[Rfam]
RNA sequence: GCCUCUGAUGAUGAUUCUGACUGAACUUUCGUUCUUCCAAGAUGUUUCAUGCGGAAAAUAUCUGGAGACCUGAACUGAAGAGGU
Numbered sequence: 001g002c003c004u005c006u007g008a009u010g011a012u013g014a015u016u017c018u019g020a021c022u023g024a025a026c027u028u029u030c031g032u033u034c035u036u037c038c039a040a041g042a043u044g045u046u047u048c049a050u051g052c053g054g055a056a057a058a059u060a061u062c063u064g065g066a067g068a069c070c071u072g073a074a075c076u077g078a079a080g081a082g083g084u
Base pairs, nucleotide, nucleotide: 003082004081005080006079
RNA: Small nucleolar RNA Z159/U59